[Rfam]
RNA sequence: CCGCGUUGGCAGUGUGGUUAGCUGGUUGUGUAUGGAAAUGACAACAGCCACUAACGACACUGCUCCUGCGU
Numbered sequence: 001c002c003g004c005g006u007u008g009g010c011a012g013u014g015u016g017g018u019u020a021g022c023u024g025g026u027u028g029u030g031u032a033u034g035g036a037a038a039u040g041a042c043a044a045c046a047g048c049c050a051c052u053a054a055c056g057a058c059a060c061u062g063c064u065c066c067u068g069c070g071u
Stems, first nucleotide, its partner, number of pairs: 002070004008063001011061005017055005023050007
RNA: mir-34 microRNA precursor family
Organism: Bombyx mori